Shown here is a 76-nucleotide RNA from Clupea harengus, a member of the family "mir-193 microRNA precursor family". Its family is annotated with RISC complex and miRNA-mediated post-transcriptional gene silencing in the Gene Ontology. For this family Rfam cites "In silico detection and characteristics of novel microRNA genes in the Equus caballus genome using an integrated ab initio and comparative genomic approach" (Zhou et al., Genomics, 2009). Pairs were carried over by alignment from the consensus structure, which was predicted with RNAalifold. A search with the family's covariance model found it, with a score of 76 bits. The family has 54 seed sequences and 1,158 matches in Rfam 15.1.
[Rfam]
RNA sequence: GUCAGAGAUUGGGUCUUUGCGGGCAAGGUGAGUUUCAUCAUUCAAUCAACUGGCCUACAAAGUCCCAGUUUUUGGC
Numbered sequence: 001g002u003c004a005g006a007g008a009u010u011g012g013g014u015c016u017u018u019g020c021g022g023g024c025a026a027g028g029u030g031a032g033u034u035u036c037a038u039c040a041u042u043c044a045a046u047c048a049a050c051u052g053g054c055c056u057a058c059a060a061a062g063u064c065c066c067a068g069u070u071u072u073u074g075g076c
Base pairs, nucleotide, nucleotide: 003074004073005072006071007070008069010067011066012065013064015062016061017060018059019058021056022055023054024053026051027050029048030047